[Rfam]
The family of this 168-nucleotide sequence from Paenibacillus stellifer is "PyrR binding site".
The family's consensus secondary structure is taken from published work.
The match comes from Rfam's covariance-model search (63 bits).
NCBI's taxonomy places the organism under Bacteria, Bacillati, Bacillota, Caryophanales, Paenibacillus.
From the family's description: This family represents the PyrR binding site and terminator structure.

RNA sequence: AGCGCCUUUAAAUCAGUCCCGUGAGGCUGGCAAGGUUACGUGAAUCGAGGUUCGCGGUUUUAUUGAAGGAAUCCGUCUGUCUGUACGGAGUUCUUUUGCUGCGCACCCACCAUCACUCUACAUUCGCGGAUUUCACUCCUUGCCCGGUUCGGGCAAGGAGUUUUUUGA
Numbered sequence: 001a002g003c004g005c006c007u008u009u010a011a012a013u014c015a016g017u018c019c020c021g022u023g024a025g026g027c028u029g030g031c032a033a034g035g036u037u038a039c040g041u042g043a044a045u046c047g048a049g050g051u052u053c054g055c056g057g058u059u060u061u062a063u064u065g066a067a068g069g070a071a072u073c074c075g076u077c078u079g080u081c082u083g084u085a086c087g088g089a090g091u092u093c094u095u096u097u098g099c100u101g102c103g104c105a106c107c108c109a110c111c112a113u114c115a116c117u118c119u120a121c122a123u124u125c126g127c128g129g130a131u132u133u134c135a136c137u138c139c140u141u142g143c144c145c146g147g148u149u150c151g152g153g154c155a156a157g158g159a160g161u162u163u164u165u166u167g168a
Stems, first nucleotide, its partner, number of pairs: 004036005013030006065096006072089005078083001135161012